The family of this 52-nucleotide RNA sequence from Oxynema acuminatum is "Nitrogen stress-induced RNA 1".
RNA sequence: AGGUAGAUGCACCCUGGUUCAACCCCUAGAAUUUAUUCUAGGGGUUUUUUAU
Numbered sequence: 001a002g003g004u005a006g007a008u009g010c011a012c013c014c015u016g017g018u019u020c021a022a023c024c025c026c027u028a029g030a031a032u033u034u035a036u037u038c039u040a041g042g043g044g045u046u047u048u049u050u051a052u
Stems, first nucleotide, its partner, number of pairs: 002013003023044009
It scores 54 bits against the family's covariance model. By type it is a small RNA.